The family of this 76-nucleotide RNA from Cnephaeus nilssonii is "mir-9229 microRNA precursor family". The family's consensus secondary structure was predicted with RNAalifold. The match comes from Rfam's covariance-model search (87 bits). Its family is annotated with miRNA-mediated post-transcriptional gene silencing and RISC complex in the Gene Ontology.
RNA sequence: GAGACACCCUUAUGGGGCAGGACUUGCUUCAGUGGGGUUUUGAUGCUCACUGAAUCUGCCCCUUGAGUGUGUCAAU
Numbered sequence: 001g002a003g004a005c006a007c008c009c010u011u012a013u014g015g016g017g018c019a020g021g022a023c024u025u026g027c028u029u030c031a032g033u034g035g036g037g038u039u040u041u042g043a044u045g046c047u048c049a050c051u052g053a054a055u056c057u058g059c060c061c062c063u064u065g066a067g068u069g070u071g072u073c074a075a076u
Base pairs, nucleotide, nucleotide: 003073004072005071006070007069009067010066011065012064014062015061016060017059018058019057021056022055029053030052031051032050033049034048035047036046037044038043